[Rfam]
RNA sequence: AACUGAAAAGGUGAUGUGGCUCACCAAAGGCUCUUAGGGAUGAGGCCCCCUCGGACGUCUAAACCGCCGAACACGGCUGAUGGCUUCUACGUGAAA
Numbered sequence: 001a002a003c004u005g006a007a008a009a010g011g012u013g014a015u016g017u018g019g020c021u022c023a024c025c026a027a028a029g030g031c032u033c034u035u036a037g038g039g040a041u042g043a044g045g046c047c048c049c050c051u052c053g054g055a056c057g058u059c060u061a062a063a064c065c066g067c068c069g070a071a072c073a074c075g076g077c078u079g080a081u082g083g084c085u086u087c088u089a090c091g092u093g094a095a096a
Stems, first nucleotide, its partner, number of pairs: 010025004016087001018085004066077004
RNA: Fluoride riboswitch aptamer (crcB RNA motif)